The family of this 148-nucleotide RNA from Phytoamicus setariae is "Alphaproteobacterial sRNA ar45". Rfam classes the family as a small RNA. For this family Rfam cites "A survey of sRNA families in alpha-proteobacteria" (del Val et al., RNA Biol, 2012). Lineage of the source: Bacteria > Pseudomonadati > Pseudomonadota > Rhizobiaceae > Phytoamicus.
RNA sequence: GCCCAAAGUCGCACGUGCCUGUGGGUGUCCGCCGACCCUCUAAUUGGUGAGGAAUUCGGUACGGUACCUGGACCUAACCGCUCCAGUCGCUACCCCGGCCUUCCGGGAAAUGCGAGGACAUCUUGAAGCAACGACGGUGCGGGCCUUU
Numbered sequence: 001g002c003c004c005a006a007a008g009u010c011g012c013a014c015g016u017g018c019c020u021g022u023g024g025g026u027g028u029c030c031g032c033c034g035a036c037c038c039u040c041u042a043a044u045u046g047g048u049g050a051g052g053a054a055u056u057c058g059g060u061a062c063g064g065u066a067c068c069u070g071g072a073c074c075u076a077a078c079c080g081c082u083c084c085a086g087u088c089g090c091u092a093c094c095c096c097g098g099c100c101u102u103c104c105g106g107g108a109a110a111u112g113c114g115a116g117g118a119c120a121u122c123u124u125g126a127a128g129c130a131a132c133g134a135c136g137g138u139g140c141g142g143g144c145c146u147u148u
Stems, first nucleotide, its partner, number of pairs: 001144004008135004016130003023123008031060005037052004068086005087115004094107005